[Rfam]
RNA: GlmZ RNA activator of glmS mRNA
RNA sequence: GUAGAUGCUCAUUCACCCUGUUAUGACUGCUUCGGCUUCAUAAAACCUGGAAUGAUGCAGAGCCAAUUUCGGUACCUAGUGUCCACCUUAUCGAUAACGCCUGUUAUCACAAAGCGGACAUAACGUUGAGUGAGGUACCACCCCCGGUUGUCCUAGACCUGAAUUUGCUUGUUUCAACACUUGUCCCGGCGGGCAAGUGUUUUUUU
Numbered sequence: 001g002u003a004g005a006u007g008c009u010c011a012u013u014c015a016c017c018c019u020g021u022u023a024u025g026a027c028u029g030c031u032u033c034g035g036c037u038u039c040a041u042a043a044a045a046c047c048u049g050g051a052a053u054g055a056u057g058c059a060g061a062g063c064c065a066a067u068u069u070c071g072g073u074a075c076c077u078a079g080u081g082u083c084c085a086c087c088u089u090a091u092c093g094a095u096a097a098c099g100c101c102u103g104u105u106a107u108c109a110c111a112a113a114g115c116g117g118a119c120a121u122a123a124c125g126u127u128g129a130g131u132g133a134g135g136u137a138c139c140a141c142c143c144c145c146g147g148u149u150g151u152c153c154u155a156g157a158c159c160u161g162a163a164u165u166u167g168c169u170u171g172u173u174u175c176a177a178c179a180c181u182u183g184u185c186c187c188g189g190c191g192g193g194c195a196a197g198u199g200u201u202u203u204u205u206u
Stems, first nucleotide, its partner, number of pairs: 001063002006059003009055004017049001019042002027035001029033001071139007081119004093108004150158003176201011